This 100-nucleotide RNA sequence from Amphibacillus marinus belongs to the Rfam family "Bacillaceae-1 RNA".
RNA sequence: AGUGGGCGAUGUUAGACUAAACCCGUCACGUCCUAGGGCUGCGAUUACUCUUCCCACCAAAACACAUGUAACAACGUCUAACUGACCUACCUCAUGUAGG
Numbered sequence: 001a002g003u004g005g006g007c008g009a010u011g012u013u014a015g016a017c018u019a020a021a022c023c024c025g026u027c028a029c030g031u032c033c034u035a036g037g038g039c040u041g042c043g044a045u046u047a048c049u050c051u052u053c054c055c056a057c058c059a060a061a062a063c064a065c066a067u068g069u070a071a072c073a074a075c076g077u078c079u080a081a082c083u084g085a086c087c088u089a090c091c092u093c094a095u096g097u098a099g100g
Stems, first nucleotide, its partner, number of pairs: 011082007025072002028069004086100005
It is annotated as a small RNA. NCBI's taxonomy places the organism under Bacteria, Bacillati, Bacillota, Caryophanales, Amphibacillus. The match comes from Rfam's covariance-model search (45 bits).